[Rfam]
This 505-nucleotide part of an RNA from Haloarchaeobius iranensis belongs to the Rfam family "Archaeal small subunit ribosomal RNA". The source organism's lineage runs through Archaea, Methanobacteriati, Methanobacteriota, Halobacteria and Haloarchaeobius. On this family, see Cannone et al., BMC Bioinformatics 2002: "The comparative RNA web (CRW) site: an online database of comparative sequence and structure information for ribosomal, intron, and other RNAs". Its Rfam clan is "SSU clan".
RNA sequence: AUUCCGGUUGAUCCUGCCGGAGGUCAUUGCUAUUGGGAUUCGAUUUAGCCAUGCUAGUCGCACGAGUUCAUACUCGUGGCAGAUAGCUCAGUAACACGUGGCCAAACUACCCUAUGGAGGACCAUAACCUCGGGAAACUGAGGCUAAUAGUCCAUACGACUCUCUCCCUGGAACUGGGUUGAGUCAGAAACGCUACGGCGCCAUAGGAUGUGGCUGCGGCCGAUUAGGUAGACGGUGGGGUAACGGCCCACCGUGCCAAUAAUCGGUAUGGGUUGUGAGAGCAAGAGCCUGGAGACGGAAUCUGAGACAAGAUUCCGGGCCCUACGGGGCGCAGCAGGCGCGAAAACUUUACACUGCACGACAGUGCGAUAAGGGAAUCCCGAGUGCGAGGGCAUAGAGCCCUCGCUUUUCUGAACCGUAGGGUGGUUCAGGAACAAGAACUGGGCAAGACCGGUGCCAGCCGCCGCGGUAACACCGGCAGUUCGAGUGAUGACCGAUAUUAUUG
Numbered sequence: 001a002u003u004c005c006g007g008u009u010g011a012u013c014c015u016g017c018c019g020g021a022g023g024u025c026a027u028u029g030c031u032a033u034u035g036g037g038a039u040u041c042g043a044u045u046u047a048g049c050c051a052u053g054c055u056a057g058u059c060g061c062a063c064g065a066g067u068u069c070a071u072a073c074u075c076g077u078g079g080c081a082g083a084u085a086g087c088u089c090a091g092u093a094a095c096a097c098g099u100g101g102c103c104a105a106a107c108u109a110c111c112c113u114a115u116g117g118a119g120g121a122c123c124a125u126a127a128c129c130u131c132g133g134g135a136a137a138c139u140g141a142g143g144c145u146a147a148u149a150g151u152c153c154a155u156a157c158g159a160c161u162c163u164c165u166c167c168c169u170g171g172a173a174c175u176g177g178g179u180u181g182a183g184u185c186a187g188a189a190a191c192g193c194u195a196c197g198g199c200g201c202c203a204u205a206g207g208a209u210g211u212g213g214c215u216g217c218g219g220c221c222g223a224u225u226a227g228g229u230a231g232a233c234g235g236u237g238g239g240g241u242a243a244c245g246g247c248c249c250a251c252c253g254u255g256c257c258a259a260u261a262a263u264c265g266g267u268a269u270g271g272g273u274u275g276u277g278a279g280a281g282c283a284a285g286a287g288c289c290u291g292g293a294g295a296c297g298g299a300a301u302c303u304g305a306g307a308c309a310a311g312a313u314u315c316c317g318g319g320c321c322c323u324a325c326g327g328g329g330c331g332c333a334g335c336a337g338g339c340g341c342g343a344a345a346a347c348u349u350u351a352c353a354c355u356g357c358a359c360g361a362c363a364g365u366g367c368g369a370u371a372a373g374g375g376a377a378u379c380c381c382g383a384g385u386g387c388g389a390g391g392g393c394a395u396a397g398a399g400c401c402c403u404c405g406c407u408u409u410u411c412u413g414a415a416c417c418g419u420a421g422g423g424u425g426g427u428u429c430a431g432g433a434a435c436a437a438g439a440a441c442u443g444g445g446c447a448a449g450a451c452c453g454g455u456g457c458c459a460g461c462c463g464c465c466g467c468g469g470u471a472a473c474a475c476c477g478g479c480a481g482u483u484c485g486a487g488u489g490a491u492g493a494c495c496g497a498u499a500u501u502a503u504u505g
Base pairs, nucleotide, nucleotide: 004020005019006018007017008016022495023494024493025492026491027490028489029488030487031486033383034382035381036380037379038378039377040376041375042341048339049338050337052336053335054334057080058079059078062077063076064075065074066073067072087294088293089292097218098217099216100215101214102213103212106211107210111207112206113205114204115203116202117201119153120152121151122150128143129142130141131140132139133138158185159184160183161182162181165178167177168176192199193198220266221265222264227257228256229255232254233253234252235251236250237249238248239247269291270290271289272288273284274283275282276281296317297316298315299314300313301312319330320329321328322327347373349372350371351370355368356367357366358365359364386406387405388404389403390402391401392400393399411431412430413429414428415427416426417425438484439483440482441481442480443479451478452477453476454475460467461466